Rfam assigns this 124-nucleotide RNA from Senna tora to the family "Small nucleolar RNA snoR77".
RNA sequence: AGGCAGCUUCCUUGCCACAAUUCAAUGGCAGGUGGGGUGUUAAACUGCUCGUAGAUUGAACACUUUUGCUCUUCAGACUUGCUGAGAUUAUCUCUGAAGCUGGUCUAGUAAGCUCAAGUACAUU
Numbered sequence: 001a002g003g004c005a006g007c008u009u010c011c012u013u014g015c016c017a018c019a020a021u022u023c024a025a026u027g028g029c030a031g032g033u034g035g036g037g038u039g040u041u042a043a044a045c046u047g048c049u050c051g052u053a054g055a056u057u058g059a060a061c062a063c064u065u066u067u068g069c070u071c072u073u074c075a076g077a078c079u080u081g082c083u084g085a086g087a088u089u090a091u092c093u094c095u096g097a098a099g100c101u102g103g104u105c106u107a108g109u110a111a112g113c114u115c116a117a118g119u120a121c122a123u124u
Base pairs, nucleotide, nucleotide: 002041003040004039005038007037008036009034011032012031013030014029015028016027017026063118064117065116068113069112070111075106076105077104078103079102081100082099083098086092087091
Gene Ontology terms of the family: nucleolus and RNA processing.
Rfam classes the family as an H/ACA-box small nucleolar RNA.